[Rfam]
RNA sequence: UUUGGUGAAAUUAAUGUAGGACUUACACUUUGAAAAUGGAACCCAUAAAAAGUGGUGAGACAUACAUUGAUUUCACUCAA
Numbered sequence: 001u002u003u004g005g006u007g008a009a010a011u012u013a014a015u016g017u018a019g020g021a022c023u024u025a026c027a028c029u030u031u032g033a034a035a036a037u038g039g040a041a042c043c044c045a046u047a048a049a050a051a052g053u054g055g056u057g058a059g060a061c062a063u064a065c066a067u068u069g070a071u072u073u074c075a076c077u078c079a080a
Base pairs, nucleotide, nucleotide: 001080002079004077005076006075007074008073009072010071011070012069013068014067015066016065017064018063023058024057025056026054027053028052029051030050031049
Rfam assigns this 80-nucleotide sequence from Medicago truncatula to the family "MIR5269 microRNA precursor family". The organism belongs to Medicago, within Eukaryota. Rfam links the family to the GO terms RISC complex and miRNA-mediated post-transcriptional gene silencing.